[Rfam]
RNA sequence: GUUUUUUCAUGACGGUCUGUGUCAAAACCACUGGGGAGGCAGACCUGAUGCUGAAAAC
Numbered sequence: 001g002u003u004u005u006u007u008c009a010u011g012a013c014g015g016u017c018u019g020u021g022u023c024a025a026a027a028c029c030a031c032u033g034g035g036g037a038g039g040c041a042g043a044c045c046u047g048a049u050g051c052u053g054a055a056a057a058c
Stems, first nucleotide, its partner, number of pairs: 001058005014045007022037002028035002
Rfam assigns this 58-nucleotide RNA sequence from Lates calcarifer to the family "Selenocysteine insertion sequence 1".
Gene Ontology term of the family: selenocysteine incorporation.
It is annotated as a cis-regulatory element.
A search with the family's covariance model found it, with a score of 44 bits.
The base pairs follow the family's consensus structure, which is taken from published work.
Rfam describes the family as follows. The incorporation of selenocysteine into a protein sequence is directed by an in-frame UGA codon (usually a stop codon) within the coding region of the mRNA. Selenoprotein mRNAs contain a conserved secondary structure in the 3' UTR that is required for the distinction of UGA stop from UGA selenocysteine. The selenocysteine insertion sequence (SECIS) is around 60 nt in length and adopts a hairpin structure which is sufficiently well-defined and conserved to act as a computational screen for selenoprotein genes.